[Rfam]
RNA sequence: CACAUGCUCCUUAGAUCCAUCUUUGUGAGUGUCUUUGUGCUGAGUUCUGCUGGAUAACUUCAGUUUCUAGCAGUUCCAGUCAGAGAUACUCAGCAACUUCUUGGUUGUACGGUCAAAGAUGCUUGAGUCAUUGGCAUGUAAGAGUAAUAUAACUGCAUGUUAGCUUUCUGUUCUGAUAGAAGUGGCUGUAAAUAUACAAGUCAUUUAUUACUAUCGGGACUUGGCUGGUAUGCAGACAUG
Number, nucleotide and partner (000 for none) at each position: 001c000002a139003c138004a137005u136006g135007c134008u133009c000010c127011u126012u125013a124014g123015a000016u000017c000018c121019a120020u119021c118022u117023u116024u115025g114026u092027g091028a090029g089030u088031g087032u000033c000034u084035u083036u082037g081038u000039g080040c079041u078042g077043a000044g076045u000046u000047c073048u072049g071050c070051u000052g000053g067054a000055u000056a065057a064058c063059u000060u000061c000062a000063g058064u057065u056066u000067c053068u000069a000070g050071c049072a048073g047074u000075u000076c044077c042078a041079g040080u039081c037082a036083g035084a034085g000086a000087u031088a030089c029090u028091c027092a026093g108094c107095a106096a105097c104098u103099u000100c000101u000102u000103g098104g097105u096106u095107g094108u093109a000110c000111g000112g000113u000114c025115a024116a023117a022118g021119a020120u019121g018122c000123u014124u013125g012126a011127g010128u000129c000130a000131u000132u000133g008134g007135c006136a005137u004138g003139u002140a000141a000142g000143a000144g000145u000146a000147a000148u000149a000150u000151a000152a000153c235154u234155g233156c232157a231158u000159g000160u228161u000162a226163g225164c224165u223166u000167u000168c000169u000170g000171u000172u218173c217174u216175g215176a214177u213178a212179g211180a000181a000182g000183u210184g209185g208186c000187u000188g201189u200190a000191a000192a000193u000194a000195u000196a000197c000198a000199a000200g189201u188202c000203a000204u000205u000206u000207a000208u185209u184210a183211c179212u178213a177214u176215c175216g174217g173218g172219a000220c000221u000222u000223g165224g164225c163226u162227g000228g160229u000230a000231u157232g156233c155234a154235g153236a000237c000238a000239u000240g000
A member of the RNA family "Small nucleolar RNA SNORA53" from Steatornis caripensis, 240 nucleotides long. It is annotated as an H/ACA-box small nucleolar RNA. The snoRNA ACA53 belongs to the H/ACA family of pseudouridylation guide snoRNAs. Gene Ontology terms of the family: nucleolus and RNA processing.